The family of this 69-nucleotide RNA sequence from Saccharopolyspora phatthalungensis is "ASpks TB sRNA". The family's consensus secondary structure is taken from published work. A search with the family's covariance model found it, with a score of 57 bits.

[Rfam]
RNA sequence: CUUGAUGGAUCCCAGCCACAGGGGUGUUUCGCGGUUCUGGCCGUAGGUGGCCAGGAGUGCUUGUGCUUC
Numbered sequence: 001c002u003u004g005a006u007g008g009a010u011c012c013c014a015g016c017c018a019c020a021g022g023g024g025u026g027u028u029u030c031g032c033g034g035u036u037c038u039g040g041c042c043g044u045a046g047g048u049g050g051c052c053a054g055g056a057g058u059g060c061u062u063g064u065g066c067u068u069c
Base pairs, nucleotide, nucleotide: 014025016023017022030065032059033058037054038053039052041050042049043048
It is annotated as an antisense RNA.